[Rfam]
RNA sequence: CUGCACGGAGAAGGGAUGCUUCGGCGUACAUGGACCGGACUUCCGGUGCAUGGACUAUCACCGCCGUGCGAAAGUCCCCGAGCGGCACCCCAAGAGCGGGUGUACGGGCAGAGAAUGCCAGCCCGGAAGGGCAGACCCCCGAGUGAGGAGCGCCGCGCAGAGGCCUCGGCUGAGCUUAAUCGUUCCUCGCGGGGAAGCUCGCUACAGCACAGUCCUGCAUUCCGCCGGCUCGCGGUCUACGCGGGUUCGUAACAGAACGGGGCUUACUCUCUCCGUGCU
Numbered sequence: 001c002u003g004c005a006c007g008g009a010g011a012a013g014g015g016a017u018g019c020u021u022c023g024g025c026g027u028a029c030a031u032g033g034a035c036c037g038g039a040c041u042u043c044c045g046g047u048g049c050a051u052g053g054a055c056u057a058u059c060a061c062c063g064c065c066g067u068g069c070g071a072a073a074g075u076c077c078c079c080g081a082g083c084g085g086c087a088c089c090c091c092a093a094g095a096g097c098g099g100g101u102g103u104a105c106g107g108g109c110a111g112a113g114a115a116u117g118c119c120a121g122c123c124c125g126g127a128a129g130g131g132c133a134g135a136c137c138c139c140c141g142a143g144u145g146a147g148g149a150g151c152g153c154c155g156c157g158c159a160g161a162g163g164c165c166u167c168g169g170c171u172g173a174g175c176u177u178a179a180u181c182g183u184u185c186c187u188c189g190c191g192g193g194g195a196a197g198c199u200c201g202c203u204a205c206a207g208c209a210c211a212g213u214c215c216u217g218c219a220u221u222c223c224g225c226c227g228g229c230u231c232g233c234g235g236u237c238u239a240c241g242c243g244g245g246u247u248c249g250u251a252a253c254a255g256a257a258c259g260g261g262g263c264u265u266a267c268u269c270u271c272u273c274c275g276u277g278c279u
Stems, first nucleotide, its partner, number of pairs: 003278009014222006022068001023065004035046004072265003076262004107119004121132004136194003143190010155175002163170002225249001227247008